[Rfam]
RNA: FMN riboswitch aptamer (RFN element)
RNA sequence: ACCAGCCUUCAGGGUAGGGUGCAAUUCCCGACCGGCGGUAAUGACGAACGCACGUCUGAGCCCGCGACUCGCUAUCGUAAGCAGUUGAUAGCGACUGACUUGGUGCAAAUCCAAGGCCGACGGUACAGUCCGGAUGGGAGAAGGUAUUU
Numbered sequence: 001a002c003c004a005g006c007c008u009u010c011a012g013g014g015u016a017g018g019g020u021g022c023a024a025u026u027c028c029c030g031a032c033c034g035g036c037g038g039u040a041a042u043g044a045c046g047a048a049c050g051c052a053c054g055u056c057u058g059a060g061c062c063c064g065c066g067a068c069u070c071g072c073u074a075u076c077g078u079a080a081g082c083a084g085u086u087g088a089u090a091g092c093g094a095c096u097g098a099c100u101u102g103g104u105g106c107a108a109a110u111c112c113a114a115g116g117c118c119g120a121c122g123g124u125a126c127a128g129u130c131c132g133g134a135u136g137g138g139a140g141a142a143g144g145u146a147u148u149u
Base pairs, nucleotide, nucleotide: 005145006144007143008142009141010140017029018028019027031129032128033119034118035065036064037063038062060117061116069094070093071092072091073090099115100114101113102112103111121132122131123130